The family of this 127-nucleotide RNA from Arthrobacter pigmenti is "SAM (S-adenosyl methionine) riboswitch aptamer".
The base pairs follow the family's consensus structure, which is taken from published work.
A reference for the family is Weinberg et al. (2008), "The aptamer core of SAM-IV riboswitches mimics the ligand-binding site of SAM-I riboswitches", RNA.
NCBI's taxonomy places the organism under Bacteria, Actinomycetota, Actinomycetes, Micrococcaceae, Arthrobacter.
SAM-IV is a mRNA element that regulates gene expression via direct sensing of S-adenosylmethionine (SAM or AdoMet). SAM-IV riboswitches share conserved nucleotide positions with the previously described SAM-I riboswitches sequence analysis and molecular recognition experiments suggest that SAM-I and SAM-IV riboswitches share similar ligand binding sites, but have different scaffolds.

RNA sequence: AGUAACGAGCGCCAGCGCCAAGCCCUGACUUGCUGGCCGGCAACCCUCUAUCACGGCGGGGUGCCUCAGGUGAAUACUCGGCACAAGGAUCAGCUUUCGAAGGAUCAACAGCGUGCACGCGUGAGGA
Numbered sequence: 001a002g003u004a005a006c007g008a009g010c011g012c013c014a015g016c017g018c019c020a021a022g023c024c025c026u027g028a029c030u031u032g033c034u035g036g037c038c039g040g041c042a043a044c045c046c047u048c049u050a051u052c053a054c055g056g057c058g059g060g061g062u063g064c065c066u067c068a069g070g071u072g073a074a075u076a077c078u079c080g081g082c083a084c085a086a087g088g089a090u091c092a093g094c095u096u097u098c099g100a101a102g103g104a105u106c107a108a109c110a111g112c113g114u115g116c117a118c119g120c121g122u123g124a125g126g127a
Stems, first nucleotide, its partner, number of pairs: 001078004009038001011037006021030002039065003044061003048056002081116004